[Rfam]
RNA sequence: CUCGGCCCUAUCUCCCAACCCUUGUACCAGUGCGUGCCUCAGUCCCUGGUACAGGAAUGGGGGGCAGGGACCUGGGG
Numbered sequence: 001c002u003c004g005g006c007c008c009u010a011u012c013u014c015c016c017a018a019c020c021c022u023u024g025u026a027c028c029a030g031u032g033c034g035u036g037c038c039u040c041a042g043u044c045c046c047u048g049g050u051a052c053a054g055g056a057a058u059g060g061g062g063g064g065c066a067g068g069g070a071c072c073u074g075g076g077g
Stems, first nucleotide, its partner, number of pairs: 007068003011064005019055002023053007
Dot-bracket structure: ......(((.(((((...((..(((((((.................)))))))))....))))).))).........
The record is a 77-nucleotide RNA from Sus scrofa, which matches "mir-150 microRNA precursor family" in Rfam. Rfam's curators put it in the seed alignment. On this family, see Murchison et al., Genome Res 2008: "Conservation of small RNA pathways in platypus". The source organism's lineage runs through Eukaryota, Gnathostomata, Euteleostomi, Eutheria and Sus. Rfam links the family to the GO terms miRNA-mediated post-transcriptional gene silencing and RISC complex.